c-di-GMP-I riboswitch aptamer: an 86-nucleotide sequence from Sporomusaceae bacterium FL31. GEMM was predicted in a large-scale screen for bacterial structured RNA regulatory elements. Its Rfam clan is "c-di-GMP_I riboswitch clan". Taxonomically the source falls in Sporomusaceae (Bacteria, Bacillota, Negativicutes, Selenomonadales). It scores 74 bits against the family's covariance model.
RNA sequence: GUUUUAAGUUGGCAAACUUAGCGAAAGUUAAGGACGCAAAGCUAUGGGGCUAAAGAUUUUAUAUCAAUGCUUGCCAGGUUGCUAUA
Numbered sequence: 001g002u003u004u005u006a007a008g009u010u011g012g013c014a015a016a017c018u019u020a021g022c023g024a025a026a027g028u029u030a031a032g033g034a035c036g037c038a039a040a041g042c043u044a045u046g047g048g049g050c051u052a053a054a055g056a057u058u059u060u061a062u063a064u065c066a067a068u069g070c071u072u073g074c075c076a077g078g079u080u081g082c083u084a085u086a
Stems, first nucleotide, its partner, number of pairs: 012037002017032006040080004045076003048071003055065003